Rfam assigns this 589-nucleotide part of an RNA from Plasmodium vivax to the family "Eukaryotic small subunit ribosomal RNA".
Lineage of the source: Eukaryota > Sar > Haemosporida > Plasmodiidae > Plasmodium.
The family has 90 seed sequences and 75,755 matches in Rfam 15.1.
Gene Ontology terms of the family: ribosome and structural constituent of ribosome.
The base pairs follow the family's consensus structure, which is taken from published work.

[Rfam]
RNA sequence: CAGUUAAAACGCUCGUAGUUGAAUUUCAAAGAAUCGAUAUUUUAAGCAACGCUUCUAGCUUAAUCCACAUAACUGAUACUUCGUAUCGACUUUGUGCGCAUUUUGCUAUUAUGUGUUCUUUUAAUUAAAAUGAUUCUUUUUAAGGACUUUCUUUGCUUCGGCUUGGAAGUCCUUGUUACUUUGAGUAAAUUAGAGUGUUCAAAGCAAACAGAUAUAGCAUUGCGCGUUUGAAUACUACAGCAUGGAAUAACAAAAUUGAACAAGUCAGAAUUUUGUUCUUUUUUCUUAUUUUGGCUUAGUUACGAUUAAUAGGAGUAGCUUGGGGGCAUUUGUAUUCAGAUGUCAGAGGUGAAAUUCUUAGAUUUUCUGGAGACAAACAACUGCGAAAGCAUUUGCCUAAAAUACUUCCAUUAAUCAAGAACGAAAGUUAAGGGAGUGAAGACGAUCAGAUACCGUCGUAAUCUUAACCAUAAACUAUGCCGACUAGGCUUUGGAUGAAAGAUUUUAAAAUAAGAAUUUUCUCUUCGGAGUUUAUUCUUAGAUUGCUUCCUUCAGUGCCUUAUGAGAAAUCAAAGUCUUUGGGUUCUGG
Numbered sequence: 001c002a003g004u005u006a007a008a009a010c011g012c013u014c015g016u017a018g019u020u021g022a023a024u025u026u027c028a029a030a031g032a033a034u035c036g037a038u039a040u041u042u043u044a045a046g047c048a049a050c051g052c053u054u055c056u057a058g059c060u061u062a063a064u065c066c067a068c069a070u071a072a073c074u075g076a077u078a079c080u081u082c083g084u085a086u087c088g089a090c091u092u093u094g095u096g097c098g099c100a101u102u103u104u105g106c107u108a109u110u111a112u113g114u115g116u117u118c119u120u121u122u123a124a125u126u127a128a129a130a131u132g133a134u135u136c137u138u139u140u141u142a143a144g145g146a147c148u149u150u151c152u153u154u155g156c157u158u159c160g161g162c163u164u165g166g167a168a169g170u171c172c173u174u175g176u177u178a179c180u181u182u183g184a185g186u187a188a189a190u191u192a193g194a195g196u197g198u199u200c201a202a203a204g205c206a207a208a209c210a211g212a213u214a215u216a217g218c219a220u221u222g223c224g225c226g227u228u229u230g231a232a233u234a235c236u237a238c239a240g241c242a243u244g245g246a247a248u249a250a251c252a253a254a255a256u257u258g259a260a261c262a263a264g265u266c267a268g269a270a271u272u273u274u275g276u277u278c279u280u281u282u283u284u285c286u287u288a289u290u291u292u293g294g295c296u297u298a299g300u301u302a303c304g305a306u307u308a309a310u311a312g313g314a315g316u317a318g319c320u321u322g323g324g325g326g327c328a329u330u331u332g333u334a335u336u337c338a339g340a341u342g343u344c345a346g347a348g349g350u351g352a353a354a355u356u357c358u359u360a361g362a363u364u365u366u367c368u369g370g371a372g373a374c375a376a377a378c379a380a381c382u383g384c385g386a387a388a389g390c391a392u393u394u395g396c397c398u399a400a401a402a403u404a405c406u407u408c409c410a411u412u413a414a415u416c417a418a419g420a421a422c423g424a425a426a427g428u429u430a431a432g433g434g435a436g437u438g439a440a441g442a443c444g445a446u447c448a449g450a451u452a453c454c455g456u457c458g459u460a461a462u463c464u465u466a467a468c469c470a471u472a473a474a475c476u477a478u479g480c481c482g483a484c485u486a487g488g489c490u491u492u493g494g495a496u497g498a499a500a501g502a503u504u505u506u507a508a509a510a511u512a513a514g515a516a517u518u519u520u521c522u523c524u525u526c527g528g529a530g531u532u533u534a535u536u537c538u539u540a541g542a543u544u545g546c547u548u549c550c551u552u553c554a555g556u557g558c559c560u561u562a563u564g565a566g567a568a569a570u571c572a573a574a575g576u577c578u579u580u581g582g583g584u585u586c587u588g589g
Stems, first nucleotide, its partner, number of pairs: 001588003009585001011422001013420002018415003312409004316404002320401002324398005331375002335371006342364001346357003383390002427468006436462002441457004479584003482577003486560003491555005497549002500547002564571002